Rfam assigns this 77-nucleotide RNA from Alligator sinensis to the family "Mammalian CPEB3 ribozyme".
RNA sequence: UGACACCCCCAGCUGACCAUAGCAGAAGCAGUCACGGUGCAGCCCUGCCACAUUCCAGUGAAUCUGUGAAUUCUACU
Numbered sequence: 001u002g003a004c005a006c007c008c009c010c011a012g013c014u015g016a017c018c019a020u021a022g023c024a025g026a027a028g029c030a031g032u033c034a035c036g037g038u039g040c041a042g043c044c045c046u047g048c049c050a051c052a053u054u055c056c057a058g059u060g061a062a063u064c065u066g067u068g069a070a071u072u073c074u075a076c077u
Stems, first nucleotide, its partner, number of pairs: 015044001017042001021077002024074004028040003049066002052063004